[Rfam]
RNA: Group II catalytic intron D1-D4-2
Organism: Escherichia sp. 4_1_40B
RNA sequence: GGUGGCAGGCCCACCGGGAUCUGCUGUCGGAAGUCGGUCCCAAACAACCCCGGCUGCUGUGGUAAAGAGCCAUGGUAGUGAGCGCAGGGGCAGGGAAAGAUCACGU
Dot-bracket structure: (((((.....)))))((((((.(((......))).))))))...(..(((.(((.(((.((((.....)))).))).)).....).))).....(......)..).